[Rfam]
RNA sequence: GAUUUAUAAAGAAGAGGCGAGAGACAGGCUUUAAGACCCUCUGGCAACCUGGAAAAUCCAAGGUGCCAAUUCCUGCCAGUUGAACAUAUUGUCAACUGGAAAUAUAAAUU
Numbered sequence: 001g002a003u004u005u006a007u008a009a010a011g012a013a014g015a016g017g018c019g020a021g022a023g024a025c026a027g028g029c030u031u032u033a034a035g036a037c038c039c040u041c042u043g044g045c046a047a048c049c050u051g052g053a054a055a056a057u058c059c060a061a062g063g064u065g066c067c068a069a070u071u072c073c074u075g076c077c078a079g080u081u082g083a084a085c086a087u088a089u090u091g092u093c094a095a096c097u098g099g100a101a102a103u104a105u106a107a108a109u110u
Base pairs, nucleotide, nucleotide: 001110002109003108004107005106006105007104008103013042014041015040016039017038021031022030023029025075026074027073028072043067044066045065046064048063049062050060051059052058053057071102076099077098078097079096080095081094082093083092

Annotation: Rfam assigns this 110-nucleotide RNA from Cecembia lonarensis to the family "SAM riboswitch aptamer (S box leader)". Its family is annotated with regulation of gene expression in the Gene Ontology.